[Rfam]
RNA: small nucleolar RNA snoR117
Organism: Prunus persica
RNA sequence: GGCCUGUGAUGUUUUGAUAUUGUCCGUACCAUCUGAGAAAAUCUUUGAUGUUUCUAUCACUAGCUUCUGAGGCCU
Numbered sequence: 001g002g003c004c005u006g007u008g009a010u011g012u013u014u015u016g017a018u019a020u021u022g023u024c025c026g027u028a029c030c031a032u033c034u035g036a037g038a039a040a041a042u043c044u045u046u047g048a049u050g051u052u053u054c055u056a057u058c059a060c061u062a063g064c065u066u067c068u069g070a071g072g073c074c075u
Stems, first nucleotide, its partner, number of pairs: 001074004